[Rfam]
Purine riboswitch aptamer: a 99-nucleotide sequence from Lactobacillus apis.
The base pairs follow the family's consensus structure, which is taken from published work.
Rfam links the family to the GO term purine nucleobase biosynthetic process.
RNA sequence: AAAAUGUAAAUAAAUAUUAUCUGUAUAUUGCCGAGAUAUGGUCGGCAGUUUCUACACGUUAACCGUAAAUUACGUACUAUAGAUAAAGAUAGCAAUCAC
Numbered sequence: 001a002a003a004a005u006g007u008a009a010a011u012a013a014a015u016a017u018u019a020u021c022u023g024u025a026u027a028u029u030g031c032c033g034a035g036a037u038a039u040g041g042u043c044g045g046c047a048g049u050u051u052c053u054a055c056a057c058g059u060u061a062a063c064c065g066u067a068a069a070u071u072a073c074g075u076a077c078u079a080u081a082g083a084u085a086a087a088g089a090u091a092g093c094a095a096u097c098a099c
Base pairs, nucleotide, nucleotide: 018085019084020083021082022081023080024079025078029047030046031045032044033043034042056075057074058073060072061071062070